[Rfam]
RNA sequence: GAUCAAUGCAUUGAAAGUGACUACAUCGGGGUUUUGUUUUUUUGUUGCUCCCACGAUCGAAUCGAUAUGAGGAAGAUGAAAAAUUAAUCAACCCCGGUUUAGUCACUUUCACUGCAUUAAUC
Numbered sequence: 001g002a003u004c005a006a007u008g009c010a011u012u013g014a015a016a017g018u019g020a021c022u023a024c025a026u027c028g029g030g031g032u033u034u035u036g037u038u039u040u041u042u043u044g045u046u047g048c049u050c051c052c053a054c055g056a057u058c059g060a061a062u063c064g065a066u067a068u069g070a071g072g073a074a075g076a077u078g079a080a081a082a083a084u085u086a087a088u089c090a091a092c093c094c095c096g097g098u099u100u101a102g103u104c105a106c107u108u109u110c111a112c113u114g115c116a117u118u119a120a121u122c
Stems, first nucleotide, its partner, number of pairs: 001122003005118006012111012025098007032081003036077007

Shown here is a 122-nucleotide RNA from Arabidopsis lyrata, a member of the family "MIR161 microRNA precursor family". The base pairs follow the family's consensus structure, which was predicted with RNAalifold. Gene Ontology terms of the family: RISC complex and miRNA-mediated post-transcriptional gene silencing. The sequence is in the family's curated seed alignment. Rfam 15.1 lists 14 matches to the family in 12 species. The source organism's lineage runs through Eukaryota, Tracheophyta, Euphyllophyta, malvids and Arabidopsis.